[Rfam]
Rfam assigns this 47-nucleotide sequence from Cocos nucifera to the family "Plastid-ycf3 group II-D1 intron".
About the family: Plastid rpl16 is a non-coding RNA (ncRNA) recognised in plastids. It was recognised in and intronic region of a ribosome rpl16 gene.
On this family, see Richter et al., Plant Commun 2023: "Retrograde signaling in plants: A critical review focusing on the GUN pathway and beyond".
The match comes from Rfam's covariance-model search (61 bits).
The base pairs follow the family's consensus structure, which was predicted with LocARNA.
The organism belongs to Cocos, within Eukaryota.

RNA sequence: AGUCCUUCUAUCAUGUAUCCUCGAUUGAUGCAACCUCAGAUGCUUCA
Numbered sequence: 001a002g003u004c005c006u007u008c009u010a011u012c013a014u015g016u017a018u019c020c021u022c023g024a025u026u027g028a029u030g031c032a033a034c035c036u037c038a039g040a041u042g043c044u045u046c047a
Base pairs, nucleotide, nucleotide: 010025011024012023032044034042